[Rfam]
The family of this 76-nucleotide RNA from Apis mellifera is "mir-9/mir-79 microRNA precursor family". Its family is annotated with miRNA-mediated post-transcriptional gene silencing and RISC complex in the Gene Ontology. NCBI's taxonomy places the organism under Eukaryota, Pancrustacea, Apoidea, Anthophila, Apis.
RNA sequence: UUGCCUUUACUUUGGUAAUAUAGCUCUAUGAUUUUAAUUAAGGAUCAUAAAGCUAGAUUACCAAAGCAAAGAGCAC
Numbered sequence: 001u002u003g004c005c006u007u008u009a010c011u012u013u014g015g016u017a018a019u020a021u022a023g024c025u026c027u028a029u030g031a032u033u034u035u036a037a038u039u040a041a042g043g044a045u046c047a048u049a050a051a052g053c054u055a056g057a058u059u060a061c062c063a064a065a066g067c068a069a070a071g072a073g074c075a076c
Base pairs, nucleotide, nucleotide: 002075003074004073006070007069008068010066011065012064013063014062015061016060017059018058019057021055022054023053024052025051027049028048029047030046031045032044
Rfam 15.1 lists 5,647 matches to the family in 934 species. The family's consensus secondary structure was predicted with RNAalifold. Rfam's curators put it in the seed alignment.